[Rfam]
Shown here is a 95-nucleotide RNA sequence from Thalassomonas actiniarum, a member of the family "c-di-GMP-I riboswitch aptamer". NCBI's taxonomy places the organism under Bacteria, Pseudomonadota, Gammaproteobacteria, Alteromonadales, Thalassomonas. The match comes from Rfam's covariance-model search (56 bits). Rfam describes the family as follows. GEMM was predicted in a large-scale screen for bacterial structured RNA regulatory elements.
RNA sequence: ACAAGAUAAUGGCAAACAGAUCGCGAGGUCUGGACGCAAAGUCACCAGUCUGCUUUAAGGUCAAAAACCAAGCGGCAGAUAGUGGGACCACCUAA
Numbered sequence: 001a002c003a004a005g006a007u008a009a010u011g012g013c014a015a016a017c018a019g020a021u022c023g024c025g026a027g028g029u030c031u032g033g034a035c036g037c038a039a040a041g042u043c044a045c046c047a048g049u050c051u052g053c054u055u056u057a058a059g060g061u062c063a064a065a066a067a068c069c070a071a072g073c074g075g076c077a078g079a080u081a082g083u084g085g086g087a088c089c090a091c092c093u094a095a
Base pairs, nucleotide, nucleotide: 012037013036017032018031019030020029021028022027041088042087043086045085046084047083048080049079050078051077052076053075054074